[Rfam]
This 46-nucleotide RNA from Musa balbisiana belongs to the Rfam family "Plastid-ycf3 group II-D1 intron". On this family, see Richter et al., Plant Commun 2023: "Retrograde signaling in plants: A critical review focusing on the GUN pathway and beyond". Its family is annotated with Group II intron splicing in the Gene Ontology. Rfam describes the family as follows. Plastid rpl16 is a non-coding RNA (ncRNA) recognised in plastids. It was recognised in and intronic region of a ribosome rpl16 gene.

RNA sequence: AAUCCUUAUGUCGUGUAUCCUCGAUUGAUGCGCCUCAGAUGCUUAA
Numbered sequence: 001a002a003u004c005c006u007u008a009u010g011u012c013g014u015g016u017a018u019c020c021u022c023g024a025u026u027g028a029u030g031c032g033c034c035u036c037a038g039a040u041g042c043u044u045a046a
Stems, first nucleotide, its partner, number of pairs: 010025004032042002